Annotation
A member of the RNA family "Small nucleolar RNA SNORA38" from Erinaceus europaeus, 131 nucleotides long. By type it is an H/ACA-box small nucleolar RNA. The base pairs follow the family's consensus structure, which was predicted with RNAfold. From the family's description: ACA38 is a member of the H/ACA class of snoRNA that guide the sites of modification of uridines to pseudouridines.

[Rfam]
RNA sequence: CCCUCCUACAAAGGCGUGUCUGAGGCUCUCAGUCUUCAGACACGUAAGAACUGGAGGUAAAGAAAUGUGGACUUGGAGAAGUCUCGGGCUAGCUUAUUCUCUGCAGGCCCAAGAUCAACCUUCCCACAAAG
Dot-bracket structure: .(((((........(((((((..((...)).......)))))))........)))))...........(((....................((((.(.....).)))).............))).......
Numbered sequence: 001c002c003c004u005c006c007u008a009c010a011a012a013g014g015c016g017u018g019u020c021u022g023a024g025g026c027u028c029u030c031a032g033u034c035u036u037c038a039g040a041c042a043c044g045u046a047a048g049a050a051c052u053g054g055a056g057g058u059a060a061a062g063a064a065a066u067g068u069g070g071a072c073u074u075g076g077a078g079a080a081g082u083c084u085c086g087g088g089c090u091a092g093c094u095u096a097u098u099c100u101c102u103g104c105a106g107g108c109c110c111a112a113g114a115u116c117a118a119c120c121u122u123c124c125c126a127c128a129a130a131g
Stems, first nucleotide, its partner, number of pairs: 002057005015044007024030002069124003092108004097103001